Rfam assigns this 67-nucleotide RNA sequence from Rufibacter tibetensis to the family "DUF805 RNA". Pairs were carried over by alignment from the consensus structure, which is taken from published work. Taxonomically the source falls in Rufibacter (Bacteria, Bacteroidota, Cytophagales, Hymenobacteraceae).
[Rfam]
RNA sequence: ACCAGGUGGAGACCAGAAGCCACAUCUAAACGGGGCGAUUCCGAAAAGCCAGACGAGUAGGUUUACC
Number, nucleotide and partner (000 for none) at each position: 001a000002c000003c000004a000005g000006g023007u022008g021009g020010a000011g000012a000013c000014c000015a000016g000017a000018a000019g000020c009021c008022a007023c006024a000025u000026c000027u000028a000029a000030a000031c000032g000033g000034g050035g049036c048037g000038a000039u000040u000041c061042c060043g000044a000045a000046a000047a000048g036049c035050c034051a000052g000053a000054c000055g000056a000057g000058u000059a000060g042061g041062u000063u000064u000065a000066c000067c000